[Rfam]
Nucleotides: 132
Stems, first nucleotide, its partner, number of pairs: 005047003011036001014033004063126009078114006
Number, partner (000 for none) and nucleotide at each position: 001000a002000c003000a004000a005047a006046g007045g008000u009000c010000g011036g012000a013000a014033c015032u016031u017030g018000u019000u020000u021000g022000u023000u024000a025000a026000u027000g028000a029000g030017c031016a032015a033014g034000u035000c036011c037000c038000u039000c040000g041000u042000a043000a044000g045007c046006c047005u048000u049000g050000g051000g052000g053000a054000u055000a056000u057000u058000a059000u060000c061000a062000u063126a064125a065124c066123a067122u068121c069120a070119u071118u072000a073000u074000u075000g076000g077000g078114u079113g080112a081111a082110c083109c084000u085000u086000u087000g088000u089000a090000g091000g092000c093000u094000u095000g096000a097000c098000c099000u100000u101000g102000g103000a104000c105000a106000a107000u108000u109083g110082g111081u112080u113079c114078a115000a116000u117000c118071a119070a120069u121068g122067a123066u124065g125064u126063u127000a128000c129000a130000u131000u132000u